[Rfam]
RNA sequence: AGUAGUCAAAAACCAGAUUCAGAGCGGAGGAACCAAAUAUUGGGGCGAAUCUUAUUAGAUAAGAGAGACACCUUCCAGUCUUAGCCCGUCAGCUAACUCCGUAGGCAAUGGGAGGAGUACCA
Number, nucleotide and partner (000 for none) at each position: 001a000002g000003u000004a000005g106006u105007c104008a000009a000010a000011a000012a000013c022014c000015a000016g000017a000018u000019u000020c000021a000022g013023a000024g102025c101026g100027g099028a098029g097030g000031a000032a000033c000034c042035a041036a000037a000038u000039a000040u000041u035042g034043g087044g086045g085046c000047g000048a000049a000050u000051c063052u062053u061054a060055u000056u000057a000058g000059a000060u054061a053062a052063g051064a000065g000066a081067g080068a079069c078070a000071c000072c000073u000074u000075c000076c000077a000078g069079u068080c067081u066082u000083a000084g000085c045086c044087c043088g000089u000090c000091a000092g000093c000094u000095a000096a000097c029098u028099c027100c026101g025102u024103a000104g007105g006106c005107a000108a000109u000110g000111g000112g000113a000114g000115g000116a000117g000118u000119a000120c000121c000122a000
The family of this 122-nucleotide sequence from Allocoleopsis franciscana is "c-di-AMP riboswitch aptamer (ydaO/yuaA leader)". Taxonomically the source falls in Allocoleopsis franciscana (Bacteria, Coleofasciculales, Coleofasciculaceae, Allocoleopsis).